[Rfam]
RNA sequence: CUUCAUGGCACCUGCAUUGUACACACUGUGUGUAUCAUUUUUAAAUGCACAGCGCAUACAAUGUGGAUACUAUGUUG
Numbered sequence: 001c002u003u004c005a006u007g008g009c010a011c012c013u014g015c016a017u018u019g020u021a022c023a024c025a026c027u028g029u030g031u032g033u034a035u036c037a038u039u040u041u042u043a044a045a046u047g048c049a050c051a052g053c054g055c056a057u058a059c060a061a062u063g064u065g066g067a068u069a070c071u072a073u074g075u076u077g
Base pairs, nucleotide, nucleotide: 012066013065015063016062017061018060019059020058021057024054026052027051028050029049030048031047
The record is a 77-nucleotide sequence from Polypterus senegalus, which matches "mir-460 microRNA precursor family" in Rfam. The family's consensus secondary structure was predicted with RNAalifold.